[Rfam]
RNA sequence: CUGAGAGAUAGGCAAACCCAUCGAAAGAUGGGGGACGCAAAGCCGGAAGGGUCUAAGGCGGCGAACGCCGCAAUGACAGCCGGUUGUAAGC
Numbered sequence: 001c002u003g004a005g006a007g008a009u010a011g012g013c014a015a016a017c018c019c020a021u022c023g024a025a026a027g028a029u030g031g032g033g034g035a036c037g038c039a040a041a042g043c044c045g046g047a048a049g050g051g052u053c054u055a056a057g058g059c060g061g062c063g064a065a066c067g068c069c070g071c072a073a074u075g076a077c078a079g080c081c082g083g084u085u086g087u088a089a090g091c
Base pairs, nucleotide, nucleotide: 012038013037017032018031019030020029021028022027041085042084043083044082049081050080051077052076053075058071059070060069061068

A member of the RNA family "c-di-GMP-I riboswitch aptamer" from Butyricicoccus sp. TM10-16AC, 91 nucleotides long. The organism belongs to Butyricicoccus, within Bacteria. The match comes from Rfam's covariance-model search (64 bits). Its family is annotated with cyclic-di-GMP binding in the Gene Ontology. GEMM was predicted in a large-scale screen for bacterial structured RNA regulatory elements. Genes associated with GEMM are involved in a diverse array of functions, including chemotaxis regulation, signal transduction, secretion and chitin. The family is grouped with related families in Rfam's "c-di-GMP_I riboswitch clan". Pairs were carried over by alignment from the consensus structure, which is taken from published work.